[Rfam]
RNA sequence: CCCUUAUCUUUUAAAAGUUUCAAAUUGGUCCUUUAUCUUUAUUUUAGGUUUCAAUUGGUCCCUUCUGUCAAUUUUUUUAACUAUUUCUGUUAAAUUUGGACACGUGGCACACUUGCACAUAUGACACGUGUCCAAAUUUAACGGUAACAGUAAAAAAAUUGACGGAAGGGACCAAUUUGAAACCUAAAAAAAAGAUAAGGGACCAACUUGAAACUUUUAAAAGAUAAGGGA
Numbered sequence: 001c002c003c004u005u006a007u008c009u010u011u012u013a014a015a016a017g018u019u020u021c022a023a024a025u026u027g028g029u030c031c032u033u034u035a036u037c038u039u040u041a042u043u044u045u046a047g048g049u050u051u052c053a054a055u056u057g058g059u060c061c062c063u064u065c066u067g068u069c070a071a072u073u074u075u076u077u078u079a080a081c082u083a084u085u086u087c088u089g090u091u092a093a094a095u096u097u098g099g100a101c102a103c104g105u106g107g108c109a110c111a112c113u114u115g116c117a118c119a120u121a122u123g124a125c126a127c128g129u130g131u132c133c134a135a136a137u138u139u140a141a142c143g144g145u146a147a148c149a150g151u152a153a154a155a156a157a158a159u160u161g162a163c164g165g166a167a168g169g170g171a172c173c174a175a176u177u178u179g180a181a182a183c184c185u186a187a188a189a190a191a192a193a194g195a196u197a198a199g200g201g202a203c204c205a206a207c208u209u210g211a212a213a214c215u216u217u218u219a220a221a222a223g224a225u226a227a228g229g230g231a
Stems, first nucleotide, its partner, number of pairs: 002229007023208001025206001027204003031200010042189002045186003
About this RNA
Shown here is a 231-nucleotide sequence from Trifolium subterraneum, a member of the family "MIR2655 microRNA precursor family". The match comes from Rfam's covariance-model search (132 bits). Lineage of the source: Eukaryota > Streptophytina > Magnoliopsida > Fabales > Trifolium. The family has 25 seed sequences and 892 matches in Rfam 15.1.